[Rfam]
RNA sequence: GUUCUCUGUGAUGUUUACGACCUUGCUAAUUCAGAUCAUUCUGUGAUCGAAUACUUCUUCGUCUUAUCUUCUGAGGGAAUG
Numbered sequence: 001g002u003u004c005u006c007u008g009u010g011a012u013g014u015u016u017a018c019g020a021c022c023u024u025g026c027u028a029a030u031u032c033a034g035a036u037c038a039u040u041c042u043g044u045g046a047u048c049g050a051a052u053a054c055u056u057c058u059u060c061g062u063c064u065u066a067u068c069u070u071c072u073g074a075g076g077g078a079a080u081g
Stems, first nucleotide, its partner, number of pairs: 001080007
This 81-nucleotide RNA sequence from Rhododendron simsii belongs to the Rfam family "Small nucleolar RNA snoR53Y". A reference for the family is Brown et al. (2001), "Multiple snoRNA gene clusters from Arabidopsis", RNA. Rfam links the family to the GO terms RNA processing and nucleolus. The family is grouped with related families in Rfam's "snoR53 clan". Taxonomically the source falls in Rhododendron (Eukaryota, Spermatophyta, Gunneridae, asterids).